[Rfam]
RNA: Bacterial RNase P class A
Organism: Chryseobacterium sp. P1-3
RNA sequence: CGAGAAAGUCGGCCUGUUGAUUUCCCGUUCUACGGGAGGUAGGAAAGUCCGGACACCAUAGAGCAGCAAAGCGGAUAACAUCCGUCACCCGCGAGGGUAGGACAAGUGCAACAGAAAGCAGGUACAGUUCGGCUGUAGUGAAACCAGGUAAACUCUUUGCGGUGCAAUGGUAAGUAUAUCGGUUCUUUUCAGUAAUGGAAAUAGGGGCGGCUCGUCCUGAAAGCCGAGGGGUAAUCAGCUCAAGUCUUGCAGUAAUGUAAGGCGUAGAUAAAUAACAGGCACUUCUUCGGAAGUACAGAAUCCGGCUUAUAGAUUUUCUCGUGUU
Numbered sequence: 001c002g003a004g005a006a007a008g009u010c011g012g013c014c015u016g017u018u019g020a021u022u023u024c025c026c027g028u029u030c031u032a033c034g035g036g037a038g039g040u041a042g043g044a045a046a047g048u049c050c051g052g053a054c055a056c057c058a059u060a061g062a063g064c065a066g067c068a069a070a071g072c073g074g075a076u077a078a079c080a081u082c083c084g085u086c087a088c089c090c091g092c093g094a095g096g097g098u099a100g101g102a103c104a105a106g107u108g109c110a111a112c113a114g115a116a117a118g119c120a121g122g123u124a125c126a127g128u129u130c131g132g133c134u135g136u137a138g139u140g141a142a143a144c145c146a147g148g149u150a151a152a153c154u155c156u157u158u159g160c161g162g163u164g165c166a167a168u169g170g171u172a173a174g175u176a177u178a179u180c181g182g183u184u185c186u187u188u189u190c191a192g193u194a195a196u197g198g199a200a201a202u203a204g205g206g207g208c209g210g211c212u213c214g215u216c217c218u219g220a221a222a223g224c225c226g227a228g229g230g231g232u233a234a235u236c237a238g239c240u241c242a243a244g245u246c247u248u249g250c251a252g253u254a255a256u257g258u259a260a261g262g263c264g265u266a267g268a269u270a271a272a273u274a275a276c277a278g279g280c281a282c283u284u285c286u287u288c289g290g291a292a293g294u295a296c297a298g299a300a301u302c303c304g305g306c307u308u309a310u311a312g313a314u315u316u317u318c319u320c321g322u323g324u325u
Stems, first nucleotide, its partner, number of pairs: 001321010011310001012280007020040009045308003049305005054164004061213004066160005071085005086100001087098004101155002106153002108149002123137006168237004179227005204218005244263008